[Rfam]
RNA sequence: CGGACGUGCCUUUCAGGCAUCCUCUCCCAAGACUUCCAAGCCCGGUUGGUUCGCCAGCCGGGCUUUUUUCUUGCCCGC
Numbered sequence: 001c002g003g004a005c006g007u008g009c010c011u012u013u014c015a016g017g018c019a020u021c022c023u024c025u026c027c028c029a030a031g032a033c034u035u036c037c038a039a040g041c042c043c044g045g046u047u048g049g050u051u052c053g054c055c056a057g058c059c060g061g062g063c064u065u066u067u068u069u070c071u072u073g074c075c076c077g078c
Stems, first nucleotide, its partner, number of pairs: 008018004040063009